[Rfam]
RNA sequence: UAACAACAAAUACAAAUAAAUAAAAAAAUUCGACAUGAUAAAUUCGUAAUUUCAAAAAAAAAUUUAAUUUUAAAAAUUGAAUACGUUGAAUUUUGAAAAAACGUUUUCGAAACAAUUUGAUAUUAAUUUAAUAACAAAUCAACGUUGAACAACAUUGAAAUUUCGACGUUUUUAACAAGUUUCGAUUGUUCAACGUAUAAUUAACAAUUAAUUUAAAAUUGAUACGAACAAAAAAAAUUUGAUUGUUUAAUUAAAACAUAACAUUGCGAUAAUUAAAAAAUAAUGUUGACGUAAUGUGAUUUUUGUUCAAUGUUUUAAAUGUAAAAUGAAUGUUAAAUAAUUUGUGAAAAACGUUUAUUAAUUGUGUACAAAUCAAAACGAUGUAAUUCGAAUAAACGCGAAUAAACAACGAAAAUAAUUAUAACUUUUUUAAAAUGAGUUUUUGAAUUGUCGUGAAAUUUUACGCGAAUUUUGAUUAAUAAUAAUCGUGUAAAUAAUCAAAUGUUUCGUUAUUUAAUUAAUGACGCGCAUAAAUGAAUUAACGAAAUUUUUAUUAUUUUUAUUUGUUAUUUAACGAAAUCACAA
Numbered sequence: 001u002a003a004c005a006a007c008a009a010a011u012a013c014a015a016a017u018a019a020a021u022a023a024a025a026a027a028a029u030u031c032g033a034c035a036u037g038a039u040a041a042a043u044u045c046g047u048a049a050u051u052u053c054a055a056a057a058a059a060a061a062a063u064u065u066a067a068u069u070u071u072a073a074a075a076a077u078u079g080a081a082u083a084c085g086u087u088g089a090a091u092u093u094u095g096a097a098a099a100a101a102c103g104u105u106u107u108c109g110a111a112a113c114a115a116u117u118u119g120a121u122a123u124u125a126a127u128u129u130a131a132u133a134a135c136a137a138a139u140c141a142a143c144g145u146u147g148a149a150c151a152a153c154a155u156u157g158a159a160a161u162u163u164c165g166a167c168g169u170u171u172u173u174a175a176c177a178a179g180u181u182u183c184g185a186u187u188g189u190u191c192a193a194c195g196u197a198u199a200a201u202u203a204a205c206a207a208u209u210a211a212u213u214u215a216a217a218a219u220u221g222a223u224a225c226g227a228a229c230a231a232a233a234a235a236a237a238u239u240u241g242a243u244u245g246u247u248u249a250a251u252u253a254a255a256a257c258a259u260a261a262c263a264u265u266g267c268g269a270u271a272a273u274u275a276a277a278a279a280a281u282a283a284u285g286u287u288g289a290c291g292u293a294a295u296g297u298g299a300u301u302u303u304u305g306u307u308c309a310a311u312g313u314u315u316u317a318a319a320u321g322u323a324a325a326a327u328g329a330a331u332g333u334u335a336a337a338u339a340a341u342u343u344g345u346g347a348a349a350a351a352c353g354u355u356u357a358u359u360a361a362u363u364g365u366g367u368a369c370a371a372a373u374c375a376a377a378a379c380g381a382u383g384u385a386a387u388u389c390g391a392a393u394a395a396a397c398g399c400g401a402a403u404a405a406a407c408a409a410c411g412a413a414a415a416u417a418a419u420u421a422u423a424a425c426u427u428u429u430u431u432a433a434a435a436u437g438a439g440u441u442u443u444u445g446a447a448u449u450g451u452c453g454u455g456a457a458a459u460u461u462u463a464c465g466c467g468a469a470u471u472u473u474g475a476u477u478a479a480u481a482a483u484a485a486u487c488g489u490g491u492a493a494a495u496a497a498u499c500a501a502a503u504g505u506u507u508c509g510u511u512a513u514u515u516a517a518u519u520a521a522u523g524a525c526g527c528g529c530a531u532a533a534a535u536g537a538a539u540u541a542a543c544g545a546a547a548u549u550u551u552u553a554u555u556a557u558u559u560u561u562a563u564u565u566g567u568u569a570u571u572u573a574a575c576g577a578a579a580u581c582a583c584a585a
Stems, first nucleotide, its partner, number of pairs: 001573003006570001015568008024559003041065002044062001050055001066220009075209005081198009091175002095171003103162001105160006116149006123142002126139004221225001233552007240544002244258003261297008272284004301538003305410003311406001312403004320398003327391001328389003411429004416424001430493003509525006

Rfam assigns this 585-nucleotide part of an RNA from Heterodermia speciosa to the family "Eukaryotic large subunit ribosomal RNA". The organism belongs to Heterodermia, within Eukaryota. Gene Ontology terms of the family: structural constituent of ribosome and ribosome.